[Rfam]
RNA sequence: GGAUGUGAGAGCAAUCUGGCUGUGACCUCUGUCACCCCAUUGAUCUCCAGGGUUGAUUUGGCUGACCUGGCUGGCUAGGCAGGUGUCUCCUUCCUCCCUCACUGCUCAAUGUGUGUCUCUCCUGAAGCUGCAUGCUCAGUCAAAGAGGAUGACUUUCCCUGAUAGAGAAUGACCAUUCUUUGGUCAAGGGUAUAUGAACAACUGUGCUCCCCUGCUAGAACCUCCAAACAAGCUCUCAAGGUCCAUUUGGAGGAGAAUGUAGGUUAGUCAAGCUUCCAAGACUCCAGACAUAUCCAAAUGAGGAGCUGCCUGUGGCAGUCUGCCUUUCUUU
Numbered sequence: 001g002g003a004u005g006u007g008a009g010a011g012c013a014a015u016c017u018g019g020c021u022g023u024g025a026c027c028u029c030u031g032u033c034a035c036c037c038c039a040u041u042g043a044u045c046u047c048c049a050g051g052g053u054u055g056a057u058u059u060g061g062c063u064g065a066c067c068u069g070g071c072u073g074g075c076u077a078g079g080c081a082g083g084u085g086u087c088u089c090c091u092u093c094c095u096c097c098c099u100c101a102c103u104g105c106u107c108a109a110u111g112u113g114u115g116u117c118u119c120u121c122c123u124g125a126a127g128c129u130g131c132a133u134g135c136u137c138a139g140u141c142a143a144a145g146a147g148g149a150u151g152a153c154u155u156u157c158c159c160u161g162a163u164a165g166a167g168a169a170u171g172a173c174c175a176u177u178c179u180u181u182g183g184u185c186a187a188g189g190g191u192a193u194a195u196g197a198a199c200a201a202c203u204g205u206g207c208u209c210c211c212c213u214g215c216u217a218g219a220a221c222c223u224c225c226a227a228a229c230a231a232g233c234u235c236u237c238a239a240g241g242u243c244c245a246u247u248u249g250g251a252g253g254a255g256a257a258u259g260u261a262g263g264u265u266a267g268u269c270a271a272g273c274u275u276c277c278a279a280g281a282c283u284c285c286a287g288a289c290a291u292a293u294c295c296a297a298a299u300g301a302g303g304a305g306c307u308g309c310c311u312g313u314g315g316c317a318g319u320c321u322g323c324c325u326u327u328c329u330u331u
Stems, first nucleotide, its partner, number of pairs: 002107002005102005011096001014092001018090002024087003028083006035074002037070003042067001044065002047061002116171001118168004122139004127135002140162003147158003202272002207267002211263005222255004229249004296331003300326004305319005
Dot-bracket structure: .((.(((((.(..(...((....(((.((((((.(((((..(.((.((...........))..)).))))..))...)))))).))).)).)...).)))))...))........(.((((((((.((.....))))))(((....(((......))).)))..))))..)..............................((...((..(((((......((((...((((.............))))..))))...)))))..))...)).......................(((.((((.(((((.....)))))...))))..)))

This 331-nucleotide RNA sequence from Equus asinus belongs to the Rfam family "7SK RNA". NCBI's taxonomy places the organism under Eukaryota, Chordata, Sarcopterygii, Dipnotetrapodomorpha, Equus. The match comes from Rfam's covariance-model search (311 bits). Rfam's curators write: 7SK was discovered as an abundant small nuclear RNA in the mid-70s but a possible function has only recently been suggested. Two independent studies have found that 7SK RNA binds the CDK9/cyclin T complex (known as elongation factor P-TEFb). P-TEFb activates transcription by phosphorylating the C-terminal domain of RNA polymerase II. This process is negatively regulated by the 7SK RNP. The secondary structure of 7SK RNA shown here was proposed by Wasserman and Steitz on the basis of chemical modification and enzymatic cleavage experiments.